[Rfam]
RNA sequence: ACAAAAAAAUGCCUGCAGAUACAUAUCUGCAGGCUCUCUUUGUUUUGCAACAAAGAGACAAAAAAGGGAGAGGAGAAACCGGAGGAAGAACUUAUGGGGAAACGUAAGCCUUCUCCGUUU
Numbered sequence: 001a002c003a004a005a006a007a008a009a010u011g012c013c014u015g016c017a018g019a020u021a022c023a024u025a026u027c028u029g030c031a032g033g034c035u036c037u038c039u040u041u042g043u044u045u046u047g048c049a050a051c052a053a054a055g056a057g058a059c060a061a062a063a064a065a066g067g068g069a070g071a072g073g074a075g076a077a078a079c080c081g082g083a084g085g086a087a088g089a090a091c092u093u094a095u096g097g098g099g100a101a102a103c104g105u106a107a108g109c110c111u112u113c114u115c116c117g118u119u120u
Base pairs, nucleotide, nucleotide: 011034012033013032014031015030016029017028018027019026035068036067037066038055039054040053041052042051043050080117081116082115083114085113086112087111088110091108092107093106094105

Rfam assigns this 120-nucleotide sequence from Virgibacillus sp. MSP4-1 to the family "ylbH leader". Rfam classes the family as a cis-regulatory leader. A reference for the family is Barrick et al. (2004), "New RNA motifs suggest an expanded scope for riboswitches in bacterial genetic control", Proc Natl Acad Sci U S A. Rfam links the family to the GO term regulation of gene expression. Taxonomically the source falls in Virgibacillus (Bacteria, Bacillati, Bacilli, Bacillaceae). The pairing is the family consensus, mapped onto this sequence.